[Rfam]
RNA sequence: GCGGAUGGCCGGAUGGCCGCGGCCCCUUCGGGGGGCGAGGAAAGUCCGGACUCCACAAGGCAACGGUGCCGGGUAACGCCCGGCCGGGGCAACCCGAGGGAAAGCGCCACAGAAAACAGACCGCCCCACGGCCGCGCCAGCGGCGGGGGCAAGGGUGAAACGGUGGAGUAAGAGCCCACCGCGCCCCUGGCAACAGGGGCGGCACGGCAAGCCCCACCGGGAGCAAUGCCAAAUAGGGAUCGCGCGUGGCCUCGGCCACAGGGGCGCCUUGCCCCGAGCAGAUCCGGGUUGGCAGCUGGAGGCGGCGCGGCGACGCGUCGUCUAGAUGAAUGGCCAUCCAGGGGGCGUCCGCCCCCGGACAGAAUCCGGCUUACAGGCCGUCCGCGCAC
Number, nucleotide and partner (000 for none) at each position: 001g385002c384003g383004g382005a381006u380007g379008g378009c377010c376011g374012g338013a337014u336015g335016g334017c333018c332019g000020c037021g036022g000023c034024c033025c032026c031027u000028u000029c000030g000031g026032g025033g024034g023035g000036c021037g020038a000039g000040g000041a000042a372043a371044g370045u000046c369047c368048g367049g366050a365051c223052u222053c221054c220055a000056c000057a000058a000059g270060g269061c000062a000063a000064c219065g218066g217067u216068g215069c083070c082071g081072g080073g079074u000075a000076a000077c000078g000079c073080c072081c071082g070083g069084c098085c096086g095087g094088g093089g000090c000091a000092a000093c088094c087095c086096g085097a000098g084099g214100g213101a000102a000103a000104g212105c211106g208107c207108c206109a000110c000111a000112g000113a000114a000115a000116a000117c000118a000119g000120a000121c154122c153123g150124c149125c148126c147127c146128a000129c000130g000131g000132c000133c000134g000135c000136g000137c000138c000139a000140g000141c000142g000143g000144c000145g000146g127147g126148g125149g124150c123151a000152a000153g122154g121155g000156u000157g000158a000159a000160a000161c000162g180163g179164u178165g177166g176167a000168g000169u000170a000171a000172g000173a000174g000175c000176c166177c165178a164179c163180c162181g203182c201183g200184c199185c198186c197187c196188u195189g194190g000191c000192a000193a000194c189195a188196g187197g186198g185199g184200c183201g182202g000203c181204a000205c000206g108207g107208c106209a000210a000211g105212c104213c100214c099215c068216a067217c066218c065219g064220g054221g053222a052223g051224c000225a000226a000227u294228g293229c292230c291231a000232a000233a000234u000235a000236g000237g285238g284239a283240u282241c281242g000243c000244g000245c000246g000247u000248g000249g000250c000251c000252u000253c000254g000255g000256c000257c000258a000259c000260a000261g275262g274263g273264g272265c271266g000267c000268c000269u060270u059271g265272c264273c263274c262275c261276g000277a000278g000279c000280a000281g241282a240283u239284c238285c237286g000287g000288g000289u000290u000291g230292g229293c228294a227295g000296c000297u000298g000299g000300a000301g000302g321303c320304g319305g318306c317307g316308c315309g314310g000311c000312g000313a000314c309315g308316c307317g306318u305319c304320g303321u302322c000323u000324a000325g000326a000327u000328g000329a000330a000331u000332g018333g017334c016335c015336a014337u013338c012339c000340a000341g000342g000343g000344g000345g000346c000347g000348u000349c000350c000351g000352c000353c000354c000355c000356c000357g000358g000359a000360c000361a000362g000363a000364a000365u050366c049367c048368g047369g046370c044371u043372u042373a000374c011375a000376g010377g009378c008379c007380g006381u005382c004383c003384g002385c001386g000387c000388a000389c000
Source information
Rfam assigns this 389-nucleotide sequence from Pseudoruegeria aquimaris to the family "Bacterial RNase P class A". Rfam links the family to the GO terms dimeric ribonuclease P complex, tRNA processing and ribonuclease P activity. The source organism's lineage runs through Bacteria, Pseudomonadati, Rhodobacterales, Roseobacteraceae and Pseudoruegeria. For this family Rfam cites "Identification and characterization of small RNAs in Yersinia pestis" (Beauregard et al., RNA Biol, 2013).